[Rfam]
RNA: Glycine riboswitch aptamer
Organism: Pseudoneobacillus rhizosphaerae
RNA sequence: CUCUGGAGAGAGCUUUAUUUAGAUUUAAGCCACCAAAGGGGAAAACCUUAAUUGGUAAACUUUCAGGUGCAAGGACAGAG
Numbered sequence: 001c002u003c004u005g006g007a008g009a010g011a012g013c014u015u016u017a018u019u020u021a022g023a024u025u026u027a028a029g030c031c032a033c034c035a036a037a038g039g040g041g042a043a044a045a046c047c048u049u050a051a052u053u054g055g056u057a058a059a060c061u062u063u064c065a066g067g068u069g070c071a072a073g074g075a076c077a078g079a080g
Stems, first nucleotide, its partner, number of pairs: 001080005012030004032068003036063001039062003046054001